RNA sequence: GACUGGUCCAGAACUUAGCUAUUUGGAGAGCAGUUGCCUUAAAUGAAAUCCUGUUCACAGUGGCUAAGUUCAGGUUCUGUG
Numbered sequence: 001g002a003c004u005g006g007u008c009c010a011g012a013a014c015u016u017a018g019c020u021a022u023u024u025g026g027a028g029a030g031c032a033g034u035u036g037c038c039u040u041a042a043a044u045g046a047a048a049u050c051c052u053g054u055u056c057a058c059a060g061u062g063g064c065u066a067a068g069u070u071c072a073g074g075u076u077c078u079g080u081g
Stems, first nucleotide, its partner, number of pairs: 011071010026058001028056005
Source information
Shown here is an 81-nucleotide RNA from Chiloscyllium punctatum, a member of the family "mir-27 microRNA precursor family". For this family Rfam cites "MicroRNA profile of Marek's disease virus-transformed T-cell line MSB-1: predominance of virus-encoded microRNAs" (Yao et al., J Virol, 2008). The base pairs follow the family's consensus structure, which was predicted with RNAalifold. NCBI's taxonomy places the organism under Eukaryota, Eumetazoa, Craniata, Galeoidea, Chiloscyllium. Its family is annotated with miRNA-mediated post-transcriptional gene silencing and RISC complex in the Gene Ontology. The match comes from Rfam's covariance-model search (54 bits).